[Rfam]
RNA sequence: CCCGGCGUGGUUCGUAACCCUCCCACGAAAAAAAACUAAGGAGAG
Numbered sequence: 001c002c003c004g005g006c007g008u009g010g011u012u013c014g015u016a017a018c019c020c021u022c023c024c025a026c027g028a029a030a031a032a033a034a035a036c037u038a039a040g041g042a043g044a045g
Stems, first nucleotide, its partner, number of pairs: 006027005015038002

The family of this 45-nucleotide RNA sequence from Mesobacillus campisalis is "PreQ1 (pre queuosine) riboswitch aptamer".
Rfam describes the family as follows. This family is a bacterial riboswitch that binds to the metabolite preQ1, an intermediate in the biosynthesis of the modified nucleoside queuosine from GTP. One example of this riboswitch is located in the leader of the Bacillus subtilis ykvJKLM (queCDEF) operon which encodes four genes necessary for queuosine production.
Its family is annotated with queuosine biosynthetic process in the Gene Ontology.
NCBI's taxonomy places the organism under Bacteria, Bacillati, Bacilli, Bacillaceae, Mesobacillus.
The literature on the family includes a 2004 paper in J Biol Chem by Reader et al., "Identification of four genes necessary for biosynthesis of the modified nucleoside queuosine".
The pairing is the family consensus, mapped onto this sequence.